TPP riboswitch aptamer (THI element): a 97-nucleotide RNA sequence from Alkalicoccobacillus porphyridii.

[Rfam]
RNA sequence: CUUCAUGACUCGGGGUGCCCUUCUGCGUGAAGGCUGAGAAAUACCCGUAUCACCUGAGCUGGAUAAUGCCAGCGUAGGGAAGUCACGGACCACCAGG
Numbered sequence: 001c002u003u004c005a006u007g008a009c010u011c012g013g014g015g016u017g018c019c020c021u022u023c024u025g026c027g028u029g030a031a032g033g034c035u036g037a038g039a040a041a042u043a044c045c046c047g048u049a050u051c052a053c054c055u056g057a058g059c060u061g062g063a064u065a066a067u068g069c070c071a072g073c074g075u076a077g078g079g080a081a082g083u084c085a086c087g088g089a090c091c092a093c094c095a096g097g
Stems, first nucleotide, its partner, number of pairs: 006085005011047004016041001017034003021030001053078004059072004
The base pairs follow the family's consensus structure, which is taken from published work. Its family is annotated with thiamine pyrophosphate binding in the Gene Ontology. Lineage of the source: Bacteria > Bacillota > Bacilli > Caryophanales > Alkalicoccobacillus.